[Rfam]
This 79-nucleotide RNA from Danio rerio belongs to the Rfam family "mir-184 microRNA precursor family".
On this family, see Chen et al., Genes Dev 2005: "The developmental miRNA profiles of zebrafish as determined by small RNA cloning".
RNA sequence: CACAUCUCCUUAUCACUUUUCCAGCCCAGCUAACGAUGGUGAAUCCGUUGGACGGAGAACUGAUAAGGGCAUGUGGCUG
Number, nucleotide and partner (000 for none) at each position: 001c000002a000003c000004a000005u000006c000007u069008c068009c067010u066011u065012a064013u063014c062015a061016c000017u059018u058019u057020u056021c055022c054023a000024g000025c051026c050027c000028a000029g000030c000031u000032a000033a000034c000035g000036a000037u000038g000039g000040u000041g000042a000043a000044u000045c000046c000047g000048u000049u000050g026051g025052a000053c000054g022055g021056a020057g019058a018059a017060c000061u015062g014063a013064u012065a011066a010067g009068g008069g007070c000071a000072u000073g000074u000075g000076g000077c000078u000079g000